[Rfam]
RNA sequence: CCGUGCUAAGUGGGGAGGUAGCGGUGCCCUGUACUCGCAAUCCGCUAUAGCGGGACCGAAUCCCUUCUUUAGGCUUUGUUUCCGUGAGGUCUGCCCUGAGUAAGUGGUGUAGACGUCCGGGUUCUGCGCAACGAAAACCCGUGAACCCUGUCAGGUCCGGAAGGAAGCAGCAGUAAGCGGACUCUUUCGUGUGCCGCAGAGUCGCCUGGGCCGAGCUAACUGCUCGGGUAACGCUCAUGGAAGCAUUGCCGACAGAAGGUGCACGG
Numbered sequence: 001c002c003g004u005g006c007u008a009a010g011u012g013g014g015g016a017g018g019u020a021g022c023g024g025u026g027c028c029c030u031g032u033a034c035u036c037g038c039a040a041u042c043c044g045c046u047a048u049a050g051c052g053g054g055a056c057c058g059a060a061u062c063c064c065u066u067c068u069u070u071a072g073g074c075u076u077u078g079u080u081u082c083c084g085u086g087a088g089g090u091c092u093g094c095c096c097u098g099a100g101u102a103a104g105u106g107g108u109g110u111a112g113a114c115g116u117c118c119g120g121g122u123u124c125u126g127c128g129c130a131a132c133g134a135a136a137a138c139c140c141g142u143g144a145a146c147c148c149u150g151u152c153a154g155g156u157c158c159g160g161a162a163g164g165a166a167g168c169a170g171c172a173g174u175a176a177g178c179g180g181a182c183u184c185u186u187u188c189g190u191g192u193g194c195c196g197c198a199g200a201g202u203c204g205c206c207u208g209g210g211c212c213g214a215g216c217u218a219a220c221u222g223c224u225c226g227g228g229u230a231a232c233g234c235u236c237a238u239g240g241a242a243g244c245a246u247u248g249c250c251g252a253c254a255g256a257a258g259g260u261g262c263a264c265g266g
Base pairs, nucleotide, nucleotide: 001266002265003264004263005262006261010056011055012030013029014028015027017025019023034054035053036052037051038050063259064258065257066256067255068254072250073249074248079243080242081241082240083239084238085237086236087235088234092230093229096227097226098225099224100223101222104220105219106217107216108215115211116210117209118208119207120206121205122204123200124199125198126197127196128195129191130190132189133188134187135186136185139180140179141178142177148173149172150171151170156165157164158163

Shown here is a 266-nucleotide RNA sequence from Alteribacillus bidgolensis, a member of the family "Bacterial large signal recognition particle RNA". Rfam links the family to the GO terms SRP-dependent cotranslational protein targeting to membrane, signal sequence recognition and signal recognition particle, plasma membrane targeting. It scores 236 bits against the family's covariance model. The family's RNA type in Rfam is non-coding RNA gene.